Source information:
Rfam assigns this 73-nucleotide RNA sequence from Tetraodon nigroviridis to the family "mir-193 microRNA precursor family". The family's consensus secondary structure was predicted with RNAalifold. Rfam links the family to the GO terms miRNA-mediated post-transcriptional gene silencing and RISC complex. On this family, see Houbaviy et al., Dev Cell 2003: "Embryonic stem cell-specific MicroRNAs". The sequence is in the family's curated seed alignment. Lineage of the source: Eukaryota > Osteoglossocephalai > Euacanthomorphacea > Tetraodontidae > Tetraodon.
RNA sequence: CAGAAGCUGGGUCUUUGCGGGCAAGGUGAGUCCUCAGUUUGUUCAACUGGCCUACAAAGUCCCAGUGUCUGGC
Number, nucleotide and partner (000 for none) at each position: 001c071002a070003g069004a068005a000006g066007c000008u064009g063010g062011g061012u000013c059014u058015u057016u056017g055018c000019g053020g052021g051022c050023a000024a048025g047026g000027u045028g044029a000030g000031u000032c000033c000034u000035c000036a000037g000038u000039u000040u000041g000042u000043u000044c028045a027046a000047c025048u024049g000050g022051c021052c020053u019054a000055c017056a016057a015058a014059g013060u000061c011062c010063c009064a008065g000066u006067g000068u004069c003070u002071g001072g000073c000